[Rfam]
RNA sequence: UCUCGGGUGACCGGGCGUCUGGAGGAAGCUGGAAGCAAAACGCUGGCCUGACGAACAGGAAGCGGAUACGAGGCGACACGUUGGGGUGAGGCAGCCAAAAAGGUCAAAGCCCGGUACUUGCACAGACGACGUGGCGUAUAUCCGACAGGCAUAAGCGGGAAGGCAGGUGCG
Numbered sequence: 001u002c003u004c005g006g007g008u009g010a011c012c013g014g015g016c017g018u019c020u021g022g023a024g025g026a027a028g029c030u031g032g033a034a035g036c037a038a039a040a041c042g043c044u045g046g047c048c049u050g051a052c053g054a055a056c057a058g059g060a061a062g063c064g065g066a067u068a069c070g071a072g073g074c075g076a077c078a079c080g081u082u083g084g085g086g087u088g089a090g091g092c093a094g095c096c097a098a099a100a101a102g103g104u105c106a107a108a109g110c111c112c113g114g115u116a117c118u119u120g121c122a123c124a125g126a127c128g129a130c131g132u133g134g135c136g137u138a139u140a141u142c143c144g145a146c147a148g149g150c151a152u153a154a155g156c157g158g159g160a161a162g163g164c165a166g167g168u169g170c171g
Stems, first nucleotide, its partner, number of pairs: 002015005030169002035164002041157004046150005063144005073137003077133007084112004090105003
The family of this 171-nucleotide sequence from Rhodanobacter glycinis is "Group II catalytic intron D1-D4-3". The literature on the family includes a 2001 paper in EMBO J by Chu et al., "Control of branch-site choice by a group II intron".